A member of the RNA family "Group II catalytic intron D1-D4-4" from Paenibacillus sp. J2TS4, 166 nucleotides long. Its family is annotated with Group II intron splicing in the Gene Ontology. Lineage of the source: Bacteria > Bacillota > Caryophanales > Paenibacillaceae > Paenibacillus. The pairing is the family consensus, mapped onto this sequence. Rfam describes the family as follows. Group II introns are found in rRNA, tRNA and mRNA of organelles in fungi, plants and protists, and also in mRNA in bacteria. The family has 90 seed sequences and 840 matches in Rfam 15.1.
RNA sequence: AAACCGGUGGAAGUCCGGUCGUACCAAUUGUCCAUACACGGGUACGUAGCUAUACCGCUGCUUGGAGAGGUAACAAACCAAGUACUGCGCGGCGAAAAAGGUCUUGCCGCCUCAUAGAAGGUGGGAGCAACUAGGGGAUCGAGCAAAGAUAGGAGCCUGAACAUAA
Numbered sequence: 001a002a003a004c005c006g007g008u009g010g011a012a013g014u015c016c017g018g019u020c021g022u023a024c025c026a027a028u029u030g031u032c033c034a035u036a037c038a039c040g041g042g043u044a045c046g047u048a049g050c051u052a053u054a055c056c057g058c059u060g061c062u063u064g065g066a067g068a069g070g071u072a073a074c075a076a077a078c079c080a081a082g083u084a085c086u087g088c089g090c091g092g093c094g095a096a097a098a099a100g101g102u103c104u105u106g107c108c109g110c111c112u113c114a115u116a117g118a119a120g121g122u123g124g125g126a127g128c129a130a131c132u133a134g135g136g137g138a139u140c141g142a143g144c145a146a147a148g149a150u151a152g153g154a155g156c157c158u159g160a161a162c163a164u165a166a
Base pairs, nucleotide, nucleotide: 020046021045022044023043024042055092056091057090058089059084060083061082062081063080064079069074100140101139102138103137104136105135145158